[Rfam]
RNA: Molybdenum/Tungsten riboswitch aptamer (Moco RNA motif)
RNA sequence: GACAAAAUCAAACUCCUAGCCCAGUCGCCUAAGUGCCGCAUCGCGCGGCAUAUGGCGUCUGGGCCGUGGCCUUCGGGUCACCAGGGUGCACGGCAGAAAUGCCCGCAUCUCCCGUAUCUGGAAAGGUGUUUAUCGUGAGUCAA
Numbered sequence: 001g002a003c004a005a006a007a008u009c010a011a012a013c014u015c016c017u018a019g020c021c022c023a024g025u026c027g028c029c030u031a032a033g034u035g036c037c038g039c040a041u042c043g044c045g046c047g048g049c050a051u052a053u054g055g056c057g058u059c060u061g062g063g064c065c066g067u068g069g070c071c072u073u074c075g076g077g078u079c080a081c082c083a084g085g086g087u088g089c090a091c092g093g094c095a096g097a098a099a100u101g102c103c104c105g106c107a108u109c110u111c112c113c114g115u116a117u118c119u120g121g122a123a124a125g126g127u128g129u130u131u132a133u134c135g136u137g138a139g140u141c142a143a
Base pairs, nucleotide, nucleotide: 003139006136011130012129013128015126016125019064020063021062022061023060024059026057027056028055029054033051034050035049036048037047038046039045066081067080068079069078070077084110085109086108087107088106089105092103093102094101095100111121112120